[Rfam]
RNA sequence: UGAGCAAGCCGGGCAGUUGCGGGCGCGAGGCGAAAGCGCGCGUCUGAGGAAAGUCCGAGCUCCACAGGGCAAGGAUAACGGCUAACAGCCGCCGGGGGCGACCCUAGGGAUAGUGCAACAGAGAUAUACCGCCGGAGAUGGGCCCUGGGCCAAUCUCUCAGGCAAGGGUGGAAAGGCGAGGUAAGAGCUCACCGGCGCGCGGGAGACCGCGCGGCCCUGUAAACCCUAUCCGGAGCAACACCGUGGUAUCGGGACAGGCGGUUUCACCGCCGGCGUGGCCCGCGCGUUCCGUGGAGGUGGCGUGAGCCUGCUGGCAACGGCAGGCCAAGAUAGAUGACUGCUCAAGACAGAACUCGGCUUACAGACUUGGUCACAGA
Numbered sequence: 001u002g003a004g005c006a007a008g009c010c011g012g013g014c015a016g017u018u019g020c021g022g023g024c025g026c027g028a029g030g031c032g033a034a035a036g037c038g039c040g041c042g043u044c045u046g047a048g049g050a051a052a053g054u055c056c057g058a059g060c061u062c063c064a065c066a067g068g069g070c071a072a073g074g075a076u077a078a079c080g081g082c083u084a085a086c087a088g089c090c091g092c093c094g095g096g097g098g099c100g101a102c103c104c105u106a107g108g109g110a111u112a113g114u115g116c117a118a119c120a121g122a123g124a125u126a127u128a129c130c131g132c133c134g135g136a137g138a139u140g141g142g143c144c145c146u147g148g149g150c151c152a153a154u155c156u157c158u159c160a161g162g163c164a165a166g167g168g169u170g171g172a173a174a175g176g177c178g179a180g181g182u183a184a185g186a187g188c189u190c191a192c193c194g195g196c197g198c199g200c201g202g203g204a205g206a207c208c209g210c211g212c213g214g215c216c217c218u219g220u221a222a223a224c225c226c227u228a229u230c231c232g233g234a235g236c237a238a239c240a241c242c243g244u245g246g247u248a249u250c251g252g253g254a255c256a257g258g259c260g261g262u263u264u265c266a267c268c269g270c271c272g273g274c275g276u277g278g279c280c281c282g283c284g285c286g287u288u289c290c291g292u293g294g295a296g297g298u299g300g301c302g303u304g305a306g307c308c309u310g311c312u313g314g315c316a317a318c319g320g321c322a323g324g325c326c327a328a329g330a331u332a333g334a335u336g337a338c339u340g341c342u343c344a345a346g347a348c349a350g351a352a353c354u355c356g357g358c359u360u361a362c363a364g365a366c367u368u369g370g371u372c373a374c375a376g377a
Stems, first nucleotide, its partner, number of pairs: 001373003005369004010364001011362001012342007020046008051360003055357005060235004068281002073231005079091004093107001094105004108226002113224002115220003129167002131163003135159004175193002178190003195215001196213007239299004248288001273285004306325008
RNA: Bacterial RNase P class A
Organism: Acutalibacter sp. 1XD8-33